[Rfam]
RNA sequence: CGAACUUUACGCUUCGUUAAGGGCUUUGCUUUACAACGUUGCGUGUUCCGGUUCGCCGGAUCCCGAGUGGCUUCUGCUACUCUGUUUGACGCCUCCCUGUUGGACUUUAUUCAGGAUCGCUCCGGCGAUCCUUUUUUU
Numbered sequence: 001c002g003a004a005c006u007u008u009a010c011g012c013u014u015c016g017u018u019a020a021g022g023g024c025u026u027u028g029c030u031u032u033a034c035a036a037c038g039u040u041g042c043g044u045g046u047u048c049c050g051g052u053u054c055g056c057c058g059g060a061u062c063c064c065g066a067g068u069g070g071c072u073u074c075u076g077c078u079a080c081u082c083u084g085u086u087u088g089a090c091g092c093c094u095c096c097c098u099g100u101u102g103g104a105c106u107u108u109a110u111u112c113a114g115g116a117u118c119g120c121u122c123c124g125g126c127g128a129u130c131c132u133u134u135u136u137u138u
Base pairs, nucleotide, nucleotide: 001038002012013035018033019032020031021030022029045061046060047059048058065082066081067080068079069078070077088101089100090099091098113132114131115130116129117128118127119126120125

The family of this 138-nucleotide sequence from Rhizobiales bacterium PAR1 is "Alphaproteobacterial sRNA BjrC1505". It scores 64 bits against the family's covariance model. On this family, see Madhugiri et al., RNA Biol 2012: "Small RNAs of the Bradyrhizobium/Rhodopseudomonas lineage and their analysis". NCBI's taxonomy places the organism under Bacteria, Pseudomonadati, Pseudomonadota, Alphaproteobacteria, Hyphomicrobiales.